A member of the RNA family "Small nucleolar RNA Z247" from Triticum turgidum, 139 nucleotides long.
RNA sequence: AAGGUGGAUGAAGAGGACGUUGUGUCCCACAUCCUAGCUGGACUAGAUGAGGAGUUCGACCCCAUGGUGUCACCCAUGUGCUCCCGGGUCGAGCCGGUCAAGGUCCCGGAGCUGUACUCGCAGCUCCUGAGCUUUGAAA
Numbered sequence: 001a002a003g004g005u006g007g008a009u010g011a012a013g014a015g016g017a018c019g020u021u022g023u024g025u026c027c028c029a030c031a032u033c034c035u036a037g038c039u040g041g042a043c044u045a046g047a048u049g050a051g052g053a054g055u056u057c058g059a060c061c062c063c064a065u066g067g068u069g070u071c072a073c074c075c076a077u078g079u080g081c082u083c084c085c086g087g088g089u090c091g092a093g094c095c096g097g098u099c100a101a102g103g104u105c106c107c108g109g110a111g112c113u114g115u116a117c118u119c120g121c122a123g124c125u126c127c128u129g130a131g132c133u134u135u136g137a138a139a
Stems, first nucleotide, its partner, number of pairs: 005137001007135002085108004090103001
The match comes from Rfam's covariance-model search (41 bits). For this family Rfam cites "The high diversity of snoRNAs in plants: identification and comparative study of 120 snoRNA genes from Oryza sativa" (Chen et al., Nucleic Acids Res, 2003). Lineage of the source: Eukaryota > Euphyllophyta > Petrosaviidae > Triticinae > Triticum turgidum. The family's RNA type in Rfam is C/D-box small nucleolar RNA. The family's consensus secondary structure was predicted with PFOLD.